The record is a 75-nucleotide RNA sequence from Alligator sinensis, which matches "Mammalian CPEB3 ribozyme" in Rfam. NCBI's taxonomy places the organism under Eukaryota, Deuterostomia, Gnathostomata, Sauria, Alligator. About the family: The mammalian CPEB3 ribozyme is a self cleaving RNA located in the second intron of the CPEB3 gene which belongs to a family of genes regulating messenger RNA polyadenylation.
RNA sequence: UCACAAGUCCAAGGCCAUAGCAGAAGUGCUCAAGGCUUGGUCCUGUCAGAUUCCAAUGAAUCUGUGAAUUCUGCU
Numbered sequence: 001u002c003a004c005a006a007g008u009c010c011a012a013g014g015c016c017a018u019a020g021c022a023g024a025a026g027u028g029c030u031c032a033a034g035g036c037u038u039g040g041u042c043c044u045g046u047c048a049g050a051u052u053c054c055a056a057u058g059a060a061u062c063u064g065u066g067a068a069u070u071c072u073g074c075u
Stems, first nucleotide, its partner, number of pairs: 013043002015040002019075007026038001028036001047064007